[Rfam]
RNA sequence: GUCGAGGUUCCAUCUAUAAAUGGAUAAUAUUUUUAUCUUAAUGUAUACGAGUUUUUGAAAGUAAAGGAACCAUAAUCAAUUUCUUGUUCUAUCAAGAGGAUUGAUAUUGUUCCUUUA
Numbered sequence: 001g002u003c004g005a006g007g008u009u010c011c012a013u014c015u016a017u018a019a020a021u022g023g024a025u026a027a028u029a030u031u032u033u034u035a036u037c038u039u040a041a042u043g044u045a046u047a048c049g050a051g052u053u054u055u056u057g058a059a060a061g062u063a064a065a066g067g068a069a070c071c072a073u074a075a076u077c078a079a080u081u082u083c084u085u086g087u088u089c090u091a092u093c094a095a096g097a098g099g100a101u102u103g104a105u106a107u108u109g110u111u112c113c114u115u116u117a
Base pairs, nucleotide, nucleotide: 009024010023011022012021013020063116064115065114066113067112068111069110070109072107073106074105078101081098082097083096084095085094
Plastid-psbA-1 3UTR RNA: a 117-nucleotide sequence from Adenolobus garipensis. From the family's description: Plastid psbA-1 is a non-coding RNA (ncRNA) present in plastids. It was identified in inverted repeat sequences in the 3 prime untranslate region (3UTR) of photosystem II quinone-binding protein (psbA). The family's RNA type in Rfam is cis-regulatory element. The base pairs follow the family's consensus structure, which was predicted with LocARNA. The organism belongs to Adenolobus, within Eukaryota.